Rfam assigns this 100-nucleotide RNA sequence from Paracoccus sigandri to the family "TPP riboswitch aptamer (THI element)".
[Rfam]
RNA sequence: UUCACGACCUCGGGGAGCCCGGCCGGGCUGAGACGCAUGACGCGGACCCGUUGAACCUGAUCCGGCUCAUACCGGCGGAGGGAAGGUAUCGCUGCCCUUU
Number, nucleotide and partner (000 for none) at each position: 001u000002u000003c000004a000005c000006g000007a087008c086009c085010u084011c050012g049013g048014g047015g000016a000017g028018c027019c026020c025021g000022g000023c000024c000025g020026g019027g018028c017029u000030g000031a000032g000033a000034c000035g043036c042037a000038u000039g000040a000041c000042g036043c035044g000045g000046a000047c014048c013049c012050g011051u000052u000053g000054a000055a000056c081057c080058u079059g000060a000061u000062c075063c074064g073065g072066c000067u000068c000069a000070u000071a000072c065073c064074g063075g062076c000077g000078g000079a058080g057081g056082g000083a000084a010085g009086g008087u007088a000089u000090c000091g000092c000093u000094g000095c000096c000097c000098u000099u000100u000
NCBI's taxonomy places the organism under Bacteria, Pseudomonadati, Alphaproteobacteria, Rhodobacterales, Paracoccus. The match comes from Rfam's covariance-model search (72 bits).